Nucleotides: 078
Stems, first nucleotide, its partner, number of pairs: 021038003025034003056077009
Number, partner (000 for none) and nucleotide at each position: 001000g002000c003000a004000u005000g006000u007000c008000u009000a010000a011000g012000c013000u014000u015000u016000g017000a018000c019000c020000a021038g022037g023036g024000c025034c026033u027032u028000g029000u030000c031000c032027a033026a034025g035000a036023c037022c038021c039000g040000g041000c042000g043000a044000a045000c046000a047000a048000u049000u050000u051000u052000u053000g054000g055000c056077u057076g058075c059074c060073u061072u062071c063070c064069c065000a066000g067000g068000a069064g070063g071062g072061a073060g074059g075058g076057c077056a078000a
The family of this 78-nucleotide sequence from Wuchereria bancrofti is "SmY spliceosomal RNA". Rfam classes the family as a spliceosomal small nuclear RNA. Taxonomically the source falls in Wuchereria (Eukaryota, Spirurina, Filarioidea, Onchocercidae). Pairs were carried over by alignment from the consensus structure, which is taken from published work. The literature on the family includes a 2009 paper in RNA Biol by Jones et al., "A survey of nematode SmY RNAs". The match comes from Rfam's covariance-model search (57 bits).